[Rfam]
RNA sequence: GCCCUUUUCAUAUCGCCCUGUGGCGCCUAUAUAGGGUGUGCCGGCUUCGACCGGCUAUGGCGAUAAAUUGUGCCGUGUAAUAGAUGCAGCGGACCCGGGGGCAGUACCCGGCGGCUCCACCAUAUUCCCUGAUCGCUCAGGGCAUCUGACGGGGCCGAACCAGGAUCGACGUGUAUUCAAAGACGGUGUUUUCGCUCAGGCUGAGUAACCUGUUCAAGGCUCAAAACCGAUAAGUGCCAACGAUAACGAAGCACUUGCUCUUGCAGCGUAAUUGAGGGCCUCACGGCCUGACAUUACCCUAACAGAACGCGGCUGGGCCAGCCGGGCAACAGAAUGGAUUCCA
Numbered sequence: 001g002c003c004c005u006u007u008u009c010a011u012a013u014c015g016c017c018c019u020g021u022g023g024c025g026c027c028u029a030u031a032u033a034g035g036g037u038g039u040g041c042c043g044g045c046u047u048c049g050a051c052c053g054g055c056u057a058u059g060g061c062g063a064u065a066a067a068u069u070g071u072g073c074c075g076u077g078u079a080a081u082a083g084a085u086g087c088a089g090c091g092g093a094c095c096c097g098g099g100g101g102c103a104g105u106a107c108c109c110g111g112c113g114g115c116u117c118c119a120c121c122a123u124a125u126u127c128c129c130u131g132a133u134c135g136c137u138c139a140g141g142g143c144a145u146c147u148g149a150c151g152g153g154g155c156c157g158a159a160c161c162a163g164g165a166u167c168g169a170c171g172u173g174u175a176u177u178c179a180a181a182g183a184c185g186g187u188g189u190u191u192u193c194g195c196u197c198a199g200g201c202u203g204a205g206u207a208a209c210c211u212g213u214u215c216a217a218g219g220c221u222c223a224a225a226a227c228c229g230a231u232a233a234g235u236g237c238c239a240a241c242g243a244u245a246a247c248g249a250a251g252c253a254c255u256u257g258c259u260c261u262u263g264c265a266g267c268g269u270a271a272u273u274g275a276g277g278g279c280c281u282c283a284c285g286g287c288c289u290g291a292c293a294u295u296a297c298c299c300u301a302a303c304a305g306a307a308c309g310c311g312g313c314u315g316g317g318c319c320a321g322c323c324g325g326g327c328a329a330c331a332g333a334a335u336g337g338a339u340u341c342c343a
Base pairs, nucleotide, nucleotide: 040055041054042053043052044051059196060195061194062193063192070189071188072187073186074185075184076183085175086174087173089172090171091170095111096110097109098108099107112157113156114155115154116153117152118151197212198211199210200209202223203222204221310324311323312322313321315342316341317340
The record is a 343-nucleotide RNA from Sphingobium fluviale, which matches "Alphaproteobacteria transfer-messenger RNA" in Rfam. It is annotated as a non-coding RNA gene. The base pairs follow the family's consensus structure, which is taken from published work. On this family, see Williams and Bartel, RNA 1996: "Phylogenetic analysis of tmRNA secondary structure". A search with the family's covariance model found it, with a score of 228 bits. Rfam describes the family as follows. Bacterial tmRNA, also known as 10Sa RNA or SsrA, is named for its dual tRNA and mRNA-like properties. Rfam links the family to the GO term RNA catabolic process.